[Rfam]
Rfam assigns this 128-nucleotide RNA sequence from Aliiroseovarius pelagivivens to the family "Ruegeria cis8 sRNA".
It scores 111 bits against the family's covariance model.
For this family Rfam cites "Experimental Identification of Small Non-Coding RNAs in the Model Marine Bacterium Ruegeria pomeroyi DSS-3" (Rivers et al., Front Microbiol, 2016).

RNA sequence: AUGGUCAGAACCUUGGCGAUAUAGGGGAUCAGCGGCAGGUUCAGGAUCAACAGCACAAGGUUGCCGAUAUACAUCGAGAUGAUGACCGCCCAGAAAAUCUGCGGCUCGUCGAUCAUCAGGCGCGGGCC
Number, nucleotide and partner (000 for none) at each position: 001a000002u000003g000004g017005u016006c015007a014008g013009a000010a000011c000012c000013u008014u007015g006016g005017c004018g000019a000020u000021a000022u000023a000024g000025g000026g128027g127028a000029u125030c124031a000032g000033c122034g121035g000036c119037a000038g114039g113040u112041u000042c000043a109044g000045g107046a106047u000048c104049a000050a000051c101052a100053g099054c000055a000056c000057a000058a000059g000060g000061u093062u092063g091064c000065c000066g000067a000068u000069a000070u000071a000072c084073a083074u082075c081076g000077a000078g000079a000080u000081g075082a074083u073084g072085a000086c000087c000088g000089c000090c000091c063092a062093g061094a000095a000096a000097a000098u000099c053100u052101g051102c000103g000104g048105c000106u046107c045108g000109u043110c000111g000112a040113u039114c038115a000116u000117c000118a000119g036120g000121c034122g033123c000124g030125g029126g000127c027128c026